[Rfam]
Group II catalytic intron D1-D4-1: an 84-nucleotide RNA sequence from Ensifer meliloti. Rfam links the family to the GO term Group II intron splicing. On this family, see Chu et al., EMBO J 2001: "Control of branch-site choice by a group II intron". Pairs were carried over by alignment from the consensus structure. NCBI's taxonomy places the organism under Bacteria, Pseudomonadati, Pseudomonadota, Alphaproteobacteria, Ensifer.

RNA sequence: CGCCUUGCGCCUGAAAGGGCGACGGUGUCGAGCCGGAGCGAGAAGUCAGCAGAGGUCGUAGUAGCCGUAUCCGCGGCGAAGGAC
Numbered sequence: 001c002g003c004c005u006u007g008c009g010c011c012u013g014a015a016a017g018g019g020c021g022a023c024g025g026u027g028u029c030g031a032g033c034c035g036g037a038g039c040g041a042g043a044a045g046u047c048a049g050c051a052g053a054g055g056u057c058g059u060a061g062u063a064g065c066c067g068u069a070u071c072c073g074c075g076g077c078g079a080a081g082g083a084c
Stems, first nucleotide, its partner, number of pairs: 001030002004025001008021005046053002055084003064077005